[Rfam]
The record is a 95-nucleotide RNA from Commensalibacter papalotli, which matches "Bacterial small signal recognition particle RNA" in Rfam. The literature on the family includes a 2003 paper in Nucleic Acids Res by Rosenblad et al., "SRPDB: Signal Recognition Particle Database". The family's RNA type in Rfam is non-coding RNA gene. The base pairs follow the family's consensus structure, which is taken from published work. The source organism's lineage runs through Bacteria, Pseudomonadota, Alphaproteobacteria, Acetobacterales and Commensalibacter.
RNA sequence: GGAAGUCAUGAGUGGACGAAUACCUUGUGAACUCGGUCAGGUCCGGAAGGAAGCAGCCAUUGCGAGUAUCAUUCGGGUCAUUUGUGGCUUGCCAC
Numbered sequence: 001g002g003a004a005g006u007c008a009u010g011a012g013u014g015g016a017c018g019a020a021u022a023c024c025u026u027g028u029g030a031a032c033u034c035g036g037u038c039a040g041g042u043c044c045g046g047a048a049g050g051a052a053g054c055a056g057c058c059a060u061u062g063c064g065a066g067u068a069u070c071a072u073u074c075g076g077g078u079c080a081u082u083u084g085u086g087g088c089u090u091g092c093c094a095c
Base pairs, nucleotide, nucleotide: 003090004089005088006087007086009084010083011082012081013080014079017075018074019073020072021071024066025065026064027063028062029061035058036057037056042051043050044049